[Rfam]
RNA sequence: AUGGAACUAAAGAUUAUUUCUCCAGAAGAUGGGAGCUGAAAUUACUAAGCAAUUUUUCUCUCACGAGAAACGAAGCCAAAUGAAUCUGAUCCAU
Numbered sequence: 001a002u003g004g005a006a007c008u009a010a011a012g013a014u015u016a017u018u019u020c021u022c023c024a025g026a027a028g029a030u031g032g033g034a035g036c037u038g039a040a041a042u043u044a045c046u047a048a049g050c051a052a053u054u055u056u057u058c059u060c061u062c063a064c065g066a067g068a069a070a071c072g073a074a075g076c077c078a079a080a081u082g083a084a085u086c087u088g089a090u091c092c093a094u
Base pairs, nucleotide, nucleotide: 001094002093003092004091005090

Small nucleolar RNA Z103: a 94-nucleotide RNA from Senna tora. The match comes from Rfam's covariance-model search (55 bits). The base pairs follow the family's consensus structure, which was predicted with PFOLD. The source organism's lineage runs through Eukaryota, Streptophyta, Embryophyta, Magnoliopsida and Senna. Rfam 15.1 lists 2,844 matches to the family in 233 species. By type it is a C/D-box small nucleolar RNA. The literature on the family includes a 2003 paper in Nucleic Acids Res by Chen et al., "The high diversity of snoRNAs in plants: identification and comparative study of 120 snoRNA genes from Oryza sativa".